RNA sequence: UAUAUUUGCGCCCGUAAUAGACGAGCUAUUACCAUACAUAAGAAUCAUUUAAACAAUAUUGGCAUG
Numbered sequence: 001u002a003u004a005u006u007u008g009c010g011c012c013c014g015u016a017a018u019a020g021a022c023g024a025g026c027u028a029u030u031a032c033c034a035u036a037c038a039u040a041a042g043a044a045u046c047a048u049u050u051a052a053a054c055a056a057u058a059u060u061g062g063c064a065u066g
Stems, first nucleotide, its partner, number of pairs: 014032006

The record is a 66-nucleotide sequence from Sinomicrobium oceani, which matches "S15-Flavobacteria ribosomal protein leader" in Rfam. By type it is a cis-regulatory leader. NCBI's taxonomy places the organism under Bacteria, Pseudomonadati, Bacteroidota, Flavobacteriaceae, Sinomicrobium.